[Rfam]
RNA: IS605-orfB-II RNA
RNA sequence: CAUGAUUAGUGAAAACUAGGAUUGUAUAGAGAGUAGUUGCAGUCGCUCCAACUCCGACUUCUAAAUGUAGUAAAAUUUAGAAGUAAGGUGAGAAACAACUAUAAAGUUGGAAACUUUAAUUUUAUCAAGAAAUUAAGGAACUGU
Number, nucleotide and partner (000 for none) at each position: 001c000002a000003u000004g000005a000006u019007u018008a017009g016010u015011g000012a000013a000014a000015a010016c009017u008018a007019g006020g000021a000022u000023u000024g000025u000026a000027u000028a000029g000030a000031g048032a047033g046034u045035a000036g000037u000038u000039g144040c143041a142042g141043u000044c000045g034046c033047u032048c031049c000050a000051a000052c092053u091054c090055c000056g000057a084058c083059u082060u081061c080062u079063a078064a077065a076066u075067g000068u073069a000070g000071u000072a000073a068074a000075a066076u065077u064078u063079a062080g061081a060082a059083g058084u057085a000086a000087g000088g000089u000090g054091a053092g052093a000094a000095a000096c109097a108098a107099c106100u105101a000102u000103a000104a000105a100106g099107u098108u097109g096110g000111a000112a000113a000114c138115u137116u136117u135118a134119a133120u132121u131122u130123u000124a000125u000126c000127a000128a000129g000130a122131a121132a120133u119134u118135a117136a116137g115138g114139a000140a000141c042142u041143g040144u039